[Rfam]
RNA sequence: GGAAAAACUGAACUCCUAGCCUUGGUACCUAAGUUGUCUUGCCUCUGCCGUGUAUUUCAUCGUGCAGCCUGCAAUAAGGUGCCUUGGCCGUGACGUAUGUCACCAGGGUGCUGGGUAGAAAUGCCCGCAUCUCCCGUAUUUGGAAAGGUGUUAUCAAGGUGCAACA
Numbered sequence: 001g002g003a004a005a006a007a008c009u010g011a012a013c014u015c016c017u018a019g020c021c022u023u024g025g026u027a028c029c030u031a032a033g034u035u036g037u038c039u040u041g042c043c044u045c046u047g048c049c050g051u052g053u054a055u056u057u058c059a060u061c062g063u064g065c066a067g068c069c070u071g072c073a074a075u076a077a078g079g080u081g082c083c084u085u086g087g088c089c090g091u092g093a094c095g096u097a098u099g100u101c102a103c104c105a106g107g108g109u110g111c112u113g114g115g116u117a118g119a120a121a122u123g124c125c126c127g128c129a130u131c132u133c134c135c136g137u138a139u140u141u142g143g144a145a146a147g148g149u150g151u152u153a154u155c156a157a158g159g160u161g162c163a164a165c166a
Base pairs, nucleotide, nucleotide: 003160011152012151013150015148016147019088020087021086024083025082026081027080028079029078033075034074035073036072090103091102092101093100094099106132107131108130109129110128111127113126114125115124116123117122133143134142
Background:
Shown here is a 166-nucleotide RNA sequence from Rouxiella badensis, a member of the family "Molybdenum/Tungsten riboswitch aptamer (Moco RNA motif)". For this family Rfam cites "in molybdenum cofactor and tungsten cofactor metabolism" (Regulski et al., Mol Microbiol, 2008). The base pairs follow the family's consensus structure, which is taken from published work. A search with the family's covariance model found it, with a score of 90 bits. Gene Ontology terms of the family: tungstate binding, regulation of gene expression and molybdenum ion binding. The organism belongs to Rouxiella, within Bacteria.